[Rfam]
RNA sequence: ACCGGUUUCGGCAAUUUUGCACUUAAUUUGUUAAUAUGUAUUCAUAAGUCCUGAAAGAAAAUCUUGUGUAGAUCAUUUUUUGUUUUGCCGUAUGAGGCUGAAAUCAUGACAGACUGACAUGGACAAUU
Numbered sequence: 001a002c003c004g005g006u007u008u009c010g011g012c013a014a015u016u017u018u019g020c021a022c023u024u025a026a027u028u029u030g031u032u033a034a035u036a037u038g039u040a041u042u043c044a045u046a047a048g049u050c051c052u053g054a055a056a057g058a059a060a061a062u063c064u065u066g067u068g069u070a071g072a073u074c075a076u077u078u079u080u081u082g083u084u085u086u087g088c089c090g091u092a093u094g095a096g097g098c099u100g101a102a103a104u105c106a107u108g109a110c111a112g113a114c115u116g117a118c119a120u121g122g123a124c125a126a127u128u
Stems, first nucleotide, its partner, number of pairs: 004051002007048002018040004023034002063122001065121005071115001073113002080106001082104006088097002
Background:
Small nucleolar RNA SNORA69: a 128-nucleotide RNA sequence from Myotis lucifugus. NCBI's taxonomy places the organism under Eukaryota, Deuterostomia, Gnathostomata, Sarcopterygii, Myotis. U69 is a member of the H/ACA class of small nucleolar RNAs (snoRNAs) which act as guides in the the modification of uridines to pseudouridines. The family's consensus secondary structure was predicted with PFOLD. Rfam 15.1 lists 808 matches to the family in 584 species. It is annotated as an H/ACA-box small nucleolar RNA. Its family is annotated with RNA processing and nucleolus in the Gene Ontology. The match comes from Rfam's covariance-model search (49 bits).